[Rfam]
RNA sequence: CCUGGUGGGUUGCCAUGUGUCUGCCUGUCUGUGCCUGCUGUACAGGAUCCCUGAUGUUCUGCACAGCAAGUGUAGACAGGCAAACACACCACAACUCAAUC
Numbered sequence: 001c002c003u004g005g006u007g008g009g010u011u012g013c014c015a016u017g018u019g020u021c022u023g024c025c026u027g028u029c030u031g032u033g034c035c036u037g038c039u040g041u042a043c044a045g046g047a048u049c050c051c052u053g054a055u056g057u058u059c060u061g062c063a064c065a066g067c068a069a070g071u072g073u074a075g076a077c078a079g080g081c082a083a084a085c086a087c088a089c090c091a092c093a094a095c096u097c098a099a100u101c
Base pairs, nucleotide, nucleotide: 017087018086019085022082023081024080025079026078027077028076029075030074034070036068037067038066039065040064041063043061044060045059
The record is a 101-nucleotide sequence from Silurus meridionalis, which matches "mir-214 microRNA precursor family" in Rfam. Rfam 15.1 lists 1,411 matches to the family in 642 species. Its family is annotated with RISC complex and miRNA-mediated post-transcriptional gene silencing in the Gene Ontology. Lineage of the source: Eukaryota > Vertebrata > Clupeocephala > Siluridae > Silurus.